Description: This 182-nucleotide RNA sequence from Lactobacillus johnsonii belongs to the Rfam family "Lysine riboswitch aptamer".
RNA sequence: CAAAUUCGAAGAGGCGCAACUGACAAAAGUAGCAAUUAGGAGUUUAGGCAAAACUAUGAUGAAUUGUGAAAGGGGAAGUUGCCGAAGUGAUAAUAUGAGGCCAAGUAUUAUUUGCUGGGAUGCAAUUUAAGAGAUUGUAAACUGUCGCGAAAAUUAAGAUUCGCGGAGCGCUAUCGAUCAUA
Numbered sequence: 001c002a003a004a005u006u007c008g009a010a011g012a013g014g015c016g017c018a019a020c021u022g023a024c025a026a027a028a029g030u031a032g033c034a035a036u037u038a039g040g041a042g043u044u045u046a047g048g049c050a051a052a053a054c055u056a057u058g059a060u061g062a063a064u065u066g067u068g069a070a071a072g073g074g075g076a077a078g079u080u081g082c083c084g085a086a087g088u089g090a091u092a093a094u095a096u097g098a099g100g101c102c103a104a105g106u107a108u109u110a111u112u113u114g115c116u117g118g119g120a121u122g123c124a125a126u127u128u129a130a131g132a133g134a135u136u137g138u139a140a141a142c143u144g145u146c147g148c149g150a151a152a153a154u155u156a157a158g159a160u161u162c163g164c165g166g167a168g169c170g171c172u173a174u175c176g177a178u179c180a181u182a
Base pairs, nucleotide, nucleotide: 006177007176008175009174010172011171016082017081018080019079020078021077024074032067033066034065035064036063037062039060086116087115088114089112090111091110092109093108094107095106096105117143118142121139122138123137124136125135126134127133145166146165147164148163149162150161151160
The source organism's lineage runs through Bacteria, Bacilli, Lactobacillaceae, Lactobacillus and Lactobacillus johnsonii.